[Rfam]
RNA: Small nucleolar RNA Z102/R77
Organism: Vitis vinifera
RNA sequence: GAAUGAUAUGAUGAAUGAAUUUGUUUCCCUAUUGGUUUGAUCGCCGGGAUGAUGGCGACAAAUAGUAUUAGCUCUAUCUGAUCAUUC
Numbered sequence: 001g002a003a004u005g006a007u008a009u010g011a012u013g014a015a016u017g018a019a020u021u022u023g024u025u026u027c028c029c030u031a032u033u034g035g036u037u038u039g040a041u042c043g044c045c046g047g048g049a050u051g052a053u054g055g056c057g058a059c060a061a062a063u064a065g066u067a068u069u070a071g072c073u074c075u076a077u078c079u080g081a082u083c084a085u086u087c
Base pairs, nucleotide, nucleotide: 002086003085004084005083039059042057043056044055045054